[Rfam]
RNA: MIR7502 microRNA precursor family
Organism: Gossypium klotzschianum
RNA sequence: UAUUAAAGAUUUCAUCCAUUUUUACAGUUAAAAAUUAGUCUAUGUAUGUCAUUAUGAUGUACACAUGACAUAUCAUAUAUUACUGUCUUAUUACAAUUUUUAAUAGUACAAAUGGAUGGAAUUUUUAGCA
Numbered sequence: 001u002a003u004u005a006a007a008g009a010u011u012u013c014a015u016c017c018a019u020u021u022u023u024a025c026a027g028u029u030a031a032a033a034a035u036u037a038g039u040c041u042a043u044g045u046a047u048g049u050c051a052u053u054a055u056g057a058u059g060u061a062c063a064c065a066u067g068a069c070a071u072a073u074c075a076u077a078u079a080u081u082a083c084u085g086u087c088u089u090a091u092u093a094c095a096a097u098u099u100u101u102a103a104u105a106g107u108a109c110a111a112a113u114g115g116a117u118g119g120a121a122u123u124u125u126u127a128g129c130a
Base pairs, nucleotide, nucleotide: 003128004127005126006125007124008123009122010121011120012119013118014117015116016115018113019112020111021110023108024107025106028103029102030101031100032099033098